[Rfam]
RNA sequence: UCUGCAACUGAUGAUAAAAUAGACAGGGACUGAGGGACAUGAGGUCAUCUGUACCCCACUCAUGGGGUUGAUGACUCGUGCCUUGAUGGGAAUCUCUCUCAUGCAUG
Numbered sequence: 001u002c003u004g005c006a007a008c009u010g011a012u013g014a015u016a017a018a019a020u021a022g023a024c025a026g027g028g029a030c031u032g033a034g035g036g037a038c039a040u041g042a043g044g045u046c047a048u049c050u051g052u053a054c055c056c057c058a059c060u061c062a063u064g065g066g067g068u069u070g071a072u073g074a075c076u077c078g079u080g081c082c083u084u085g086a087u088g089g090g091a092a093u094c095u096c097u098c099u100c101a102u103g104c105a106u107g
Stems, first nucleotide, its partner, number of pairs: 003105004

A member of the RNA family "Small nucleolar RNA R44/J54/Z268 family" from Colocasia esculenta, 107 nucleotides long. It is annotated as a C/D-box small nucleolar RNA. Gene Ontology terms of the family: RNA processing and nucleolus. It scores 54 bits against the family's covariance model.